[Rfam]
RNA sequence: AAUCUGCACUAGGGGUGCCCAAAUUGGCUGAGAUGAGAGCUUGAGCUCCGAUCCCUUAUGACUCGAUCAGGAUAAUACCUGCGUGAGGAAGUGUAGUGACUCUUUC
Numbered sequence: 001a002a003u004c005u006g007c008a009c010u011a012g013g014g015g016u017g018c019c020c021a022a023a024u025u026g027g028c029u030g031a032g033a034u035g036a037g038a039g040c041u042u043g044a045g046c047u048c049c050g051a052u053c054c055c056u057u058a059u060g061a062c063u064c065g066a067u068c069a070g071g072a073u074a075a076u077a078c079c080u081g082c083g084u085g086a087g088g089a090a091g092u093g094u095a096g097u098g099a100c101u102c103u104u105u106c
Base pairs, nucleotide, nucleotide: 006094007093008092009091010090011056012055013054014053016050017028018027019026035049037048038047039046040045062087063086064085065084068081069080070079071078